RNA sequence: UGCUAUGAUGGUGUAAUUUGCGUCUGAUCCUGUGAACAGUGACAGUUGCCUUCUGUCAUUAAGCUGUCGCAGAGUUUUGAUGUGUGUUUUAUUCUGAGCA
Numbered sequence: 001u002g003c004u005a006u007g008a009u010g011g012u013g014u015a016a017u018u019u020g021c022g023u024c025u026g027a028u029c030c031u032g033u034g035a036a037c038a039g040u041g042a043c044a045g046u047u048g049c050c051u052u053c054u055g056u057c058a059u060u061a062a063g064c065u066g067u068c069g070c071a072g073a074g075u076u077u078u079g080a081u082g083u084g085u086g087u088u089u090u091a092u093u094c095u096g097a098g099c100a
Stems, first nucleotide, its partner, number of pairs: 001100003021082004030072005039064002041057005
RNA: Small nucleolar RNA SNORD16
Organism: Nothobranchius furzeri